[Rfam]
The family of this 88-nucleotide sequence from Nyctereutes procyonoides is "mir-8799 microRNA precursor family". The family's consensus secondary structure was predicted with RNAalifold. NCBI's taxonomy places the organism under Eukaryota, Opisthokonta, Teleostomi, Tetrapoda, Nyctereutes.
RNA sequence: UGGGAAGGCGGGAUCCUGGGCUGUGUCCCGGCGCCCUGUGCUCCGGGGCCUGCGCUGGUGGAUUCGCGCUCCCGCCCCGCAGCCCCCU
Dot-bracket structure: .(((...(((((...(.(((.(((((((((((((...(.(((....)))).))))))..)))..)))).))).)))).))...)))..